[Rfam]
RNA sequence: CGCAUUAAUUCAAAAGUUGGUAAACUCAACAGUAAACUAUUAAACGAGAAAGCUUUUCGCUGUGAUGACAGGCCUGGUAGUUUCGAUUCGUCGGAAUGAGUCUUCGGACCGUUGGAAGUUUGAGCAGCGAGGCACUCAAAUCCUGUUAAUCGGGGUUUUACGCAAUUCGAAUUAGUGCGGAUUUUUUU
Numbered sequence: 001c002g003c004a005u006u007a008a009u010u011c012a013a014a015a016g017u018u019g020g021u022a023a024a025c026u027c028a029a030c031a032g033u034a035a036a037c038u039a040u041u042a043a044a045c046g047a048g049a050a051a052g053c054u055u056u057u058c059g060c061u062g063u064g065a066u067g068a069c070a071g072g073c074c075u076g077g078u079a080g081u082u083u084c085g086a087u088u089c090g091u092c093g094g095a096a097u098g099a100g101u102c103u104u105c106g107g108a109c110c111g112u113u114g115g116a117a118g119u120u121u122g123a124g125c126a127g128c129g130a131g132g133c134a135c136u137c138a139a140a141u142c143c144u145g146u147u148a149a150u151c152g153g154g155g156u157u158u159u160a161c162g163c164a165a166u167u168c169g170a171a172u173u174a175g176u177g178c179g180g181a182u183u184u185u186u187u188u
Stems, first nucleotide, its partner, number of pairs: 052133003056130001058129006067120001073115002076112001087096003100109003

Shown here is a 188-nucleotide RNA sequence from Bacteroidales bacterium 6E, a member of the family "Bacteroidales-1 6S-Bacteroidales RNA suggested". Rfam describes the family as follows. Bacteroidales-1 was first reported in a comparative genomics-based approach of genome and metagenome sequences from Weinberg et al. 2010 In a high-resolution transcriptome map study of Bacteroides thetaiotaomicron, Ryan et al. 2020 report this sRNA as 6S RNA homologue of Bacteroides, in the study they obtain evidence of small product RNAs (pRNAs) related to 6S function. Taxonomically the source falls in Bacteroidales (Bacteria, Pseudomonadati, Bacteroidota, Bacteroidia). It is annotated as a small RNA. For this family Rfam cites "A high-resolution transcriptome map identifies small RNA regulation of metabolism in the gut microbe Bacteroides thetaiotaomicron" (Ryan et al., Nat Commun, 2020).